[Rfam]
RNA sequence: UGCACUCACUACUGUAAGUCGCUAUGGGUAACAGUGUCUGCUAAAUGACUGACU
Numbered sequence: 001u002g003c004a005c006u007c008a009c010u011a012c013u014g015u016a017a018g019u020c021g022c023u024a025u026g027g028g029u030a031a032c033a034g035u036g037u038c039u040g041c042u043a044a045a046u047g048a049c050u051g052a053c054u
Stems, first nucleotide, its partner, number of pairs: 013043001014041003020036004025031001
Background: UnaL2 LINE 3' element: a 54-nucleotide RNA sequence from Coregonus sp. 'balchen'. The family has 30 seed sequences and 493,311 matches in Rfam 15.1. The eel long interspersed element (LINE) UnaL2 and its partner short interspersed element (SINE) share a conserved 3' tail containing a stem-loop that is critical for their retrotransposition. Presumably, the first step of retrotransposition is the recognition of their 3' tails by UnaL2-encoded reverse transcriptase. The solution structure of a 17-nucleotide RNA derived from the 3' tail of UnaL2 was determined by NMR. A search with the family's covariance model found it, with a score of 57 bits.